[Rfam]
RNA sequence: ACUUUUAAAGGAUAAGAGCAAUCCGUUGGUCUUAGGAACCACCUAUCUUGGUGCAAAUCCAAGUAAAAGUA
Dot-bracket structure: (((((((..((((.......))))..((((.......)))).....(((((.......)))))))))))).
Numbered sequence: 001a002c003u004u005u006u007a008a009a010g011g012a013u014a015a016g017a018g019c020a021a022u023c024c025g026u027u028g029g030u031c032u033u034a035g036g037a038a039c040c041a042c043c044u045a046u047c048u049u050g051g052u053g054c055a056a057a058u059c060c061a062a063g064u065a066a067a068a069g070u071a
Stems, first nucleotide, its partner, number of pairs: 001070007010024004027041004047063005